[Rfam]
Record summary
This 122-nucleotide sequence from Aquabacterium olei belongs to the Rfam family "Burkholderia RNA 11". Its family is annotated with protein binding in the Gene Ontology. Taxonomically the source falls in Aquabacterium (Bacteria, Pseudomonadati, Pseudomonadota, Burkholderiales). The match comes from Rfam's covariance-model search (84 bits). Co-purified with Hfq, expression confirmed by Northern blot. Predicted target marZ. Overlaps coding sequence.
RNA sequence: GCAACCUCAAGCUGGCCGCGACCUACCCCAGCGUGUUCCGUUCGCUGCUGGGCAUUUCGUGGAUGUGGUUCUUCGGGGCGGUGUUCCUGGCGCAGUUUCCGUCGUUCGCGCGCGAUGUGUUG
Numbered sequence: 001g002c003a004a005c006c007u008c009a010a011g012c013u014g015g016c017c018g019c020g021a022c023c024u025a026c027c028c029c030a031g032c033g034u035g036u037u038c039c040g041u042u043c044g045c046u047g048c049u050g051g052g053c054a055u056u057u058c059g060u061g062g063a064u065g066u067g068g069u070u071c072u073u074c075g076g077g078g079c080g081g082u083g084u085u086c087c088u089g090g091c092g093c094a095g096u097u098u099c100c101g102u103c104g105u106u107c108g109c110g111c112g113c114g115a116u117g118u119g120u121u122g
Stems, first nucleotide, its partner, number of pairs: 010049003014045001018041002024035003051121005057115005063105003067099002071095002074092002078088001080087002